[Rfam]
RNA: Small nucleolar RNA SNORA3/SNORA45 family
RNA sequence: AUCGAGACUAGAGUCACAUCUUUGCAUUUCUAAUUGCCUUGGUGUGCUAGAGUACUCGGAGAUAAACUACUGGUCUUUAUUCACUGGUUGGAUGUCAUUGUUGCUCAACCAGCCACCUGUUCAGUGACAAGU
Numbered sequence: 001a002u003c004g005a006g007a008c009u010a011g012a013g014u015c016a017c018a019u020c021u022u023u024g025c026a027u028u029u030c031u032a033a034u035u036g037c038c039u040u041g042g043u044g045u046g047c048u049a050g051a052g053u054a055c056u057c058g059g060a061g062a063u064a065a066a067c068u069a070c071u072g073g074u075c076u077u078u079a080u081u082c083a084c085u086g087g088u089u090g091g092a093u094g095u096c097a098u099u100g101u102u103g104c105u106c107a108a109c110c111a112g113c114c115a116c117c118u119g120u121u122c123a124g125u126g127a128c129a130a131g132u
Stems, first nucleotide, its partner, number of pairs: 002059005007053003012048002015046006024037003070124004075119001084112004089107003093103002